About this RNA: Rfam assigns this 193-nucleotide RNA from Cyanoderma ruficeps to the family "Connexin-43 internal ribosome entry site (IRES)". From the family's description: This family represents the connexin-43 internal ribosome entry site (IRES) which allows cap independent translation during conditions such as heat shock and stress.
Nucleotides: 193
Stems, first nucleotide, its partner, number of pairs: 003019002007015003029146003033142002036139001038137003041132003049125004056120002072100006101116001103114003154190001158186001161182003166176003
Number, partner (000 for none) and nucleotide at each position: 001000a002000a003019c004018u005000u006000u007015u008014a009013c010000g011000a012000g013009g014008u015007a016000u017000c018004a019003g020000c021000a022000c023000u024000u025000u026000u027000c028000u029146u030145u031144c032000a033142u034141u035000a036139g037000u038137g039136g040135g041132g042131a043130a044000g045000g046000a047000a048000g049125g050124a051123u052122g053000a054000a055000a056120a057119a058000u059000a060000c061000a062000a063000a064000a065000c066000a067000g068000c069000a070000g071000u072100a073099g074098a075097c076096u077095u078000u079000u080000a081000a082000a083000g084000u085000u086000u087000a088000a089000a090000u091000a092000g093000a094000c095077a096076g097075g098074u099073c100072u101116g102000a103114g104113u105112g106000c107000c108000u109000g110000a111000a112105c113104g114103u115000g116101c117000u118000c119057u120056u121000c122052c123051a124050u125049u126000u127000u128000a129000g130043u131042u132041u133000a134000a135040c136039c137038c138000u139036c140000c141034a142033a143000a144031g145030a146029a147000g148000u149000g150000c151000u152000c153000u154190g155000a156000u157000c158186c159000g160000u161182u162181u163180u164000c165000a166176c167175u168174g169000c170000u171000g172000a173000u174168c175167a176166g177000c178000a179000a180163g181162g182161g183000u184000a185000a186158g187000u188000u189000g190154c191000a192000a193000g
On this family, see Schiavi et al., FEBS Lett 1999: "Connexin43 mRNA contains a functional internal ribosome entry site". Gene Ontology term of the family: ribosome binding. The family has 14 seed sequences and 657 matches in Rfam 15.1.